[Rfam]
RNA sequence: UCCGUCGCAGUGCCUGACGGGAGGCGGAGCGGCGAACGAGGCCGUCGGCCAUUUUGUGUCGGCCUCCUGUGGGACGCGGUGGUA
Number, nucleotide and partner (000 for none) at each position: 001u000002c082003c081004g080005u079006c078007g077008c076009a000010g075011u074012g000013c000014c073015u072016g000017a070018c069019g068020g067021g066022a065023g064024g063025c062026g000027g060028a059029g057030c056031g055032g054033c000034g050035a000036a000037c047038g046039a045040g000041g000042c000043c000044g000045u039046c038047g037048g000049c000050c034051a000052u000053u000054u032055u031056g030057u029058g000059u028060c027061g000062g025063c024064c023065u022066c021067c020068u019069g018070u017071g000072g015073g014074a011075c010076g008077c007078g006079g005080u004081g003082g002083u000084a000
Source information: mir-632 microRNA precursor family: an 84-nucleotide RNA sequence from Callithrix jacchus. For this family Rfam cites "Genome-wide comparative analysis of microRNAs in three non-human primates" (Brameier, BMC Res Notes, 2010). NCBI's taxonomy places the organism under Eukaryota, Gnathostomata, Boreoeutheria, Platyrrhini, Callithrix. Pairs were carried over by alignment from the consensus structure, which was predicted with RNAalifold.